[Rfam]
RNA sequence: ACCAUGAAACGGCAAACCCAGUGAAAGGUGGGGACGCAAAGCUGCAGGCCUAAGGGUAGAUCCUAUGGCGGCUGGGUUACCAAG
Numbered sequence: 001a002c003c004a005u006g007a008a009a010c011g012g013c014a015a016a017c018c019c020a021g022u023g024a025a026a027g028g029u030g031g032g033g034a035c036g037c038a039a040a041g042c043u044g045c046a047g048g049c050c051u052a053a054g055g056g057u058a059g060a061u062c063c064u065a066u067g068g069c070g071g072c073u074g075g076g077u078u079a080c081c082a083a084g
Base pairs, nucleotide, nucleotide: 012037013036017032018031019030020029022027040078041077042076043075045074046073047072048069049068050067055063056062